[Rfam]
RNA: L31-Actinobacteria ribosomal protein leader
RNA sequence: UCGGUUCCGGUUCACGCCCACCUCAGCGCAGGUCAUGAGCGGGCGACCCGGCGGCC
Number, nucleotide and partner (000 for none) at each position: 001u000002c000003g056004g055005u054006u000007c051008c050009g049010g048011u000012u000013c000014a000015c045016g044017c043018c042019c041020a000021c000022c039023u038024c037025a036026g000027c000028g000029c000030a000031g000032g000033u000034c000035a000036u025037g024038a023039g022040c000041g019042g018043g017044c016045g015046a000047c000048c010049c009050g008051g007052c000053g000054g005055c004056c003